U4 spliceosomal RNA: a 135-nucleotide RNA sequence from Gopherus agassizii. About the family: U4 small nuclear RNA (U4 snRNA) is a component of the major U2-dependent spliceosome. Pairs were carried over by alignment from the consensus structure, which is taken from published work. It scores 75 bits against the family's covariance model. The source organism's lineage runs through Eukaryota, Dipnotetrapodomorpha, Cryptodira, Durocryptodira and Gopherus. Rfam 15.1 lists 32,178 matches to the family in 2,547 species.
RNA sequence: AGCUUUGCGUAGUGGCAGAAUCAUAGCCAAUGAAGUUAAUCUGAGGUAUGAUUAUUGCUAGUUGAAAACUUUUAUAGCACUUCAUAUGUUCAGAGCAGAGCUUGCAUUGAUCUUAAUUGCAGUUCAGCACUUUGU
Numbered sequence: 001a002g003c004u005u006u007g008c009g010u011a012g013u014g015g016c017a018g019a020a021u022c023a024u025a026g027c028c029a030a031u032g033a034a035g036u037u038a039a040u041c042u043g044a045g046g047u048a049u050g051a052u053u054a055u056u057g058c059u060a061g062u063u064g065a066a067a068a069c070u071u072u073u074a075u076a077g078c079a080c081u082u083c084a085u086a087u088g089u090u091c092a093g094a095g096c097a098g099a100g101c102u103u104g105c106a107u108u109g110a111u112c113u114u115a116a117u118u119g120c121a122g123u124u125c126a127g128c129a130c131u132u133u134g135u
Stems, first nucleotide, its partner, number of pairs: 020052005026047003034042002086114001088112001090110004095105004129135002